Shown here is a 102-nucleotide sequence, a member of the family "Purine riboswitch aptamer". The family has 133 seed sequences and 4,097 matches in Rfam 15.1. Pairs were carried over by alignment from the consensus structure, which is taken from published work. It is one of the family's seed sequences.

RNA sequence: AUUAAAACAUCUUCAAUAAAUCGUAUAAUAGAUCGAAUGUGGCGGUCAAGUUUCUACCAUAUCACCGUAAAUGAUAUGACUACGAUUGAAUCUUUUCCUGUU
Numbered sequence: 001a002u003u004a005a006a007a008c009a010u011c012u013u014c015a016a017u018a019a020a021u022c023g024u025a026u027a028a029u030a031g032a033u034c035g036a037a038u039g040u041g042g043c044g045g046u047c048a049a050g051u052u053u054c055u056a057c058c059a060u061a062u063c064a065c066c067g068u069a070a071a072u073g074a075u076a077u078g079a080c081u082a083c084g085a086u087u088g089a090a091u092c093u094u095u096u097c098c099u100g101u102u
Stems, first nucleotide, its partner, number of pairs: 019087007029049001031047005058078007